A member of the RNA family "Bacterial RNase P class A" from Akkermansia muciniphila, 420 nucleotides long.
Rfam classes the family as a ribozyme.
Ribonuclease P (RNase P) is a ubiquitous endoribonuclease, found in archaea, bacteria and eukarya as well as chloroplasts and mitochondria.
NCBI's taxonomy places the organism under Bacteria, Pseudomonadati, Verrucomicrobiales, Akkermansia, Akkermansia muciniphila.
RNA sequence: GAUCAGGUUCGGGUGGUCGCUGUUCCGGUCUCCGGACCGGAGUAGAGGAAAGUCCGGACAUCACAAGGCAGCGUGUCCCGUGAAAGCGGGAGACGGGAAUCUCCCAAGGGUUCCCGGACGGAAAGUGCCACAGAAAACAAACCGCCCGGAUGGGGUUCGCCCCCAUGCCGGGCAAGGGUGAAAAGGGGAGGUAAGAGCUCACCGCUCCGAGGGUGACCAAGGAGGCAUGGUAAACCCCGCGCGAUGCAAGACAAACAGGGGAAGGGUCGCCUGCCCGCCGGAUCCCCGGGUAUUAGUCGCAUCCGUUCCGUGAAAACGAACGGGCGCGCGGAACGCCUGACUGCGGUCCGCGUGAGAAAAAUGACCGCACAGCCGGCUCUGGCCGGCGGACAAAAUCUGGCUUACAGAACCUGGUCGGCU
Numbered sequence: 001g002a003u004c005a006g007g008u009u010c011g012g013g014u015g016g017u018c019g020c021u022g023u024u025c026c027g028g029u030c031u032c033c034g035g036a037c038c039g040g041a042g043u044a045g046a047g048g049a050a051a052g053u054c055c056g057g058a059c060a061u062c063a064c065a066a067g068g069c070a071g072c073g074u075g076u077c078c079c080g081u082g083a084a085a086g087c088g089g090g091a092g093a094c095g096g097g098a099a100u101c102u103c104c105c106a107a108g109g110g111u112u113c114c115c116g117g118a119c120g121g122a123a124a125g126u127g128c129c130a131c132a133g134a135a136a137a138c139a140a141a142c143c144g145c146c147c148g149g150a151u152g153g154g155g156u157u158c159g160c161c162c163c164c165a166u167g168c169c170g171g172g173c174a175a176g177g178g179u180g181a182a183a184a185g186g187g188g189a190g191g192u193a194a195g196a197g198c199u200c201a202c203c204g205c206u207c208c209g210a211g212g213g214u215g216a217c218c219a220a221g222g223a224g225g226c227a228u229g230g231u232a233a234a235c236c237c238c239g240c241g242c243g244a245u246g247c248a249a250g251a252c253a254a255a256c257a258g259g260g261g262a263a264g265g266g267u268c269g270c271c272u273g274c275c276c277g278c279c280g281g282a283u284c285c286c287c288g289g290g291u292a293u294u295a296g297u298c299g300c301a302u303c304c305g306u307u308c309c310g311u312g313a314a315a316a317c318g319a320a321c322g323g324g325c326g327c328g329c330g331g332a333a334c335g336c337c338u339g340a341c342u343g344c345g346g347u348c349c350g351c352g353u354g355a356g357a358a359a360a361a362u363g364a365c366c367g368c369a370c371a372g373c374c375g376g377c378u379c380u381g382g383c384c385g386g387c388g389g390a391c392a393a394a395a396u397c398u399g400g401c402u403u404a405c406a407g408a409a410c411c412u413g414g415u416c417g418g419c420u
Base pairs, nucleotide, nucleotide: 001416002415003414004413005412006411007410008409009408010407011405013368014367015366016365017364018363020045021044022043023042024041025040026039027038028037050403051402052401054400055399056398057397058396059246060245061244062243067275068274069273071242072241073240074239075238076091077090078089079088080087092119094116095115096114097113098112099111100110101109102108120237121236125235126234127231128230129229142177143176144173145172146171147170148169149168185203186202188200189199190198204226205224206223207222208221211218212217250298251297252296259287260286261285263283267281268280269279271277